Shown here is a 53-nucleotide RNA, a member of the family "Glutamine riboswitch aptamer (glnA leader)". The literature on the family includes a 2011 paper in RNA Biol by Ames and Breaker, "Bacterial aptamers that selectively bind glutamine". It is one of the family's seed sequences.
[Rfam]
RNA sequence: AUCGUUCAUCUCUGAAAAGAGACGGAAGUAAGUGAAAGCUGAAGGAACGCGCC
Numbered sequence: 001a002u003c004g005u006u007c008a009u010c011u012c013u014g015a016a017a018a019g020a021g022a023c024g025g026a027a028g029u030a031a032g033u034g035a036a037a038g039c040u041g042a043a044g045g046a047a048c049g050c051g052c053c
Stems, first nucleotide, its partner, number of pairs: 003049005009022005025050001031040003